[Rfam]
Group I catalytic intron: a 332-nucleotide sequence from Monilinia laxa.
RNA sequence: AUUCUAUGGUCUUCUGAACAAUGGCCAAAACUGUAGUGAACCUAUGGUUACAAAUCAUCAAAUUGCGGGAAACCCCUAAAGAAAUCUUAACCAAGUAAGUAUGGUAACAUAACUUAUGGCACAGGUAAUGACUUGUGGUUAUUUUUUGGGUUAUCUAUCAAAUAAAUAACCCAAAAAAUUAGGUAAAAUCAAGAUUUAUUAUUCAAUGGGCAAUCCGCAGCCAAGUGCCUAAUAUACAAUAUUUGGUAUGCAGUUCAUCGACUAGACGGUGGUUGGUAUUAUUAGUUUUAAUAAUGCUUAAGAUAUAGUCAGACCCCACCUGAAAAGGUGCA
Numbered sequence: 001a002u003u004c005u006a007u008g009g010u011c012u013u014c015u016g017a018a019c020a021a022u023g024g025c026c027a028a029a030a031c032u033g034u035a036g037u038g039a040a041c042c043u044a045u046g047g048u049u050a051c052a053a054a055u056c057a058u059c060a061a062a063u064u065g066c067g068g069g070a071a072a073c074c075c076c077u078a079a080a081g082a083a084a085u086c087u088u089a090a091c092c093a094a095g096u097a098a099g100u101a102u103g104g105u106a107a108c109a110u111a112a113c114u115u116a117u118g119g120c121a122c123a124g125g126u127a128a129u130g131a132c133u134u135g136u137g138g139u140u141a142u143u144u145u146u147u148g149g150g151u152u153a154u155c156u157a158u159c160a161a162a163u164a165a166a167u168a169a170c171c172c173a174a175a176a177a178a179u180u181a182g183g184u185a186a187a188a189u190c191a192a193g194a195u196u197u198a199u200u201a202u203u204c205a206a207u208g209g210g211c212a213a214u215c216c217g218c219a220g221c222c223a224a225g226u227g228c229c230u231a232a233u234a235u236a237c238a239a240u241a242u243u244u245g246g247u248a249u250g251c252a253g254u255u256c257a258u259c260g261a262c263u264a265g266a267c268g269g270u271g272g273u274u275g276g277u278a279u280u281a282u283u284a285g286u287u288u289u290a291a292u293a294a295u296g297c298u299u300a301a302g303a304u305a306u307a308g309u310c311a312g313a314c315c316c317c318a319c320c321u322g323a324a325a326a327g328g329u330g331c332a
Stems, first nucleotide, its partner, number of pairs: 001022003033042001053274005059268001064219006074210003220254002225249004232242001258311001260310005276297009317330005
Taxonomically the source falls in Monilinia (Eukaryota, Dikarya, Ascomycota, leotiomyceta). Pairs were carried over by alignment from the consensus structure, which is taken from published work.